[Rfam]
RNA: Glycine riboswitch aptamer
RNA sequence: CUGACGUGCGUGGGAGAGCUCACGAUGCCCGGAGUUAUUCGGGAUGUCUUGACGCCGAAGGAGCAACCACCCCGGAAUCUCUCAGGCAAAGGGACCGCGCACGGAAG
Numbered sequence: 001c002u003g004a005c006g007u008g009c010g011u012g013g014g015a016g017a018g019c020u021c022a023c024g025a026u027g028c029c030c031g032g033a034g035u036u037a038u039u040c041g042g043g044a045u046g047u048c049u050u051g052a053c054g055c056c057g058a059a060g061g062a063g064c065a066a067c068c069a070c071c072c073c074g075g076a077a078u079c080u081c082u083c084a085g086g087c088a089a090a091g092g093g094a095c096c097g098c099g100c101a102c103g104g105a106a107g
Stems, first nucleotide, its partner, number of pairs: 006102008020052003054087003057083002061081003067075002